[Rfam]
RNA sequence: UAAAGCUAGGUUUGUGGUUGAAAAUCGAUGCCAGUCGCAGGCGAAACGAUCCACGUAAAUUAAAAAUAGAUUUUUAAUUAUCAUGGUGCGGCUUAGGAGUAAGACCUGCCAUUUAGAUAUGAGAGGGUUAGUAGUGAGGAAUUAGUUUUUAUUAGCGAAAGCUCCAGCAGGCGAGUGUGGGGUAAAAGACCAGGUCAACUAGCUUUA
Numbered sequence: 001u002a003a004a005g006c007u008a009g010g011u012u013u014g015u016g017g018u019u020g021a022a023a024a025u026c027g028a029u030g031c032c033a034g035u036c037g038c039a040g041g042c043g044a045a046a047c048g049a050u051c052c053a054c055g056u057a058a059a060u061u062a063a064a065a066a067u068a069g070a071u072u073u074u075u076a077a078u079u080a081u082c083a084u085g086g087u088g089c090g091g092c093u094u095a096g097g098a099g100u101a102a103g104a105c106c107u108g109c110c111a112u113u114u115a116g117a118u119a120u121g122a123g124a125g126g127g128u129u130a131g132u133a134g135u136g137a138g139g140a141a142u143u144a145g146u147u148u149u150u151a152u153u154a155g156c157g158a159a160a161g162c163u164c165c166a167g168c169a170g171g172c173g174a175g176u177g178u179g180g181g182g183u184a185a186a187a188g189a190c191c192a193g194g195u196c197a198a199c200u201a202g203c204u205u206u207a
Base pairs, nucleotide, nucleotide: 001207002206003205004204005203006202007201008200009199012198013197014196015192016191017190018189019188028178029177030176031041033093034092035091036090037089038088039087050086051085055081058078060076062074063073064072084185105171106170107169108168109167110121111120112119125164126163127162128161134156135155140149141148
This 207-nucleotide RNA from Candidatus Arthromitus sp. SFB-mouse belongs to the Rfam family "raiA RNA". The sequence is in the family's curated seed alignment. The family's consensus secondary structure is taken from published work.